[Rfam]
RNA sequence: AAAUGUGAGGGCGAUCUGGCUGCGACAUCUGUCACCCCAUUAAUCGCCAGGGUUGAUUUGGCUGAUCUGGCUGGCUAGGCGGGUGUCCCCUUCCUCCCUCACCACUCCAUGUGUGUCCCUCCCGAAGUUGCACACUUGGUGGAAGAGGAUGACCAUCCCAGAUAGAAGGAGUGUACCGAUCUUUGGUCAAGGGUAUAUGAUAGCUGCGCUCCCCUGCUAGAACCUCCAAACAAGCUCAAGGUCCAUUUGUAGGAAGUAUAAAUGACACUGUGGUCAACUUGAAUAUUUCCCAGAAUUCUAUUUUUUUAAACAUGUGUAUAUUU
Numbered sequence: 001a002a003a004u005g006u007g008a009g010g011g012c013g014a015u016c017u018g019g020c021u022g023c024g025a026c027a028u029c030u031g032u033c034a035c036c037c038c039a040u041u042a043a044u045c046g047c048c049a050g051g052g053u054u055g056a057u058u059u060g061g062c063u064g065a066u067c068u069g070g071c072u073g074g075c076u077a078g079g080c081g082g083g084u085g086u087c088c089c090c091u092u093c094c095u096c097c098c099u100c101a102c103c104a105c106u107c108c109a110u111g112u113g114u115g116u117c118c119c120u121c122c123c124g125a126a127g128u129u130g131c132a133c134a135c136u137u138g139g140u141g142g143a144a145g146a147g148g149a150u151g152a153c154c155a156u157c158c159c160a161g162a163u164a165g166a167a168g169g170a171g172u173g174u175a176c177c178g179a180u181c182u183u184u185g186g187u188c189a190a191g192g193g194u195a196u197a198u199g200a201u202a203g204c205u206g207c208g209c210u211c212c213c214c215u216g217c218u219a220g221a222a223c224c225u226c227c228a229a230a231c232a233a234g235c236u237c238a239a240g241g242u243c244c245a246u247u248u249g250u251a252g253g254a255a256g257u258a259u260a261a262a263u264g265a266c267a268c269u270g271u272g273g274u275c276a277a278c279u280u281g282a283a284u285a286u287u288u289c290c291c292a293g294a295a296u297u298c299u300a301u302u303u304u305u306u307u308a309a310a311c312a313u314g315u316g317u318a319u320a321u322u323u
Stems, first nucleotide, its partner, number of pairs: 003106001005102007013093002018090002024087010035074002037070003043066003046062003117173001118169003121165001122139004127135002140162001147158003203274003210267001213264001215262001225254003230250005302320001304316001309315001
7SK RNA: a 323-nucleotide RNA from Naja naja.